[Rfam]
Notes: This 265-nucleotide RNA from Peptoniphilus lacrimalis belongs to the Rfam family "Bacterial large signal recognition particle RNA". A reference for the family is Rosenblad et al. (2009), "Kinship in the SRP RNA family", RNA Biol.
RNA sequence: CCAUGCUAGACGGGAAAUUAGCGAUGUCCUGAACCUGCAAUUCGCUACAGCAGGGUCGAAUUCCCUAUCUCGGUUUUUUGCUAUGCAGUCUGCCCUGAAAAAGUGGUGUUGAGAAUCGGGUCCUACGCAACGAAAACUUAUGAACCGUGUCAGGCCUUGAUCGGAGCAGCACUAAGUAAGACCUUUCGUGUGCCGUAUGGAGUGCCUUAUUUGAGCUAACUGUUCAGGUACCGUGUGGAGCAGAUCAUCAAAAUAGGGUGCAUGG
Numbered sequence: 001c002c003a004u005g006c007u008a009g010a011c012g013g014g015a016a017a018u019u020a021g022c023g024a025u026g027u028c029c030u031g032a033a034c035c036u037g038c039a040a041u042u043c044g045c046u047a048c049a050g051c052a053g054g055g056u057c058g059a060a061u062u063c064c065c066u067a068u069c070u071c072g073g074u075u076u077u078u079u080g081c082u083a084u085g086c087a088g089u090c091u092g093c094c095c096u097g098a099a100a101a102a103g104u105g106g107u108g109u110u111g112a113g114a115a116u117c118g119g120g121u122c123c124u125a126c127g128c129a130a131c132g133a134a135a136a137c138u139u140a141u142g143a144a145c146c147g148u149g150u151c152a153g154g155c156c157u158u159g160a161u162c163g164g165a166g167c168a169g170c171a172c173u174a175a176g177u178a179a180g181a182c183c184u185u186u187c188g189u190g191u192g193c194c195g196u197a198u199g200g201a202g203u204g205c206c207u208u209a210u211u212u213g214a215g216c217u218a219a220c221u222g223u224u225c226a227g228g229u230a231c232c233g234u235g236u237g238g239a240g241c242a243g244a245u246c247a248u249c250a251a252a253a254u255a256g257g258g259u260g261c262a263u264g265g
Stems, first nucleotide, its partner, number of pairs: 001265006009057003012030004017025003034054005063258006072249003078243005084237004091230002095227005103220002105217003113212004118207004122200002124197004128190002131188005137180005147172004155164002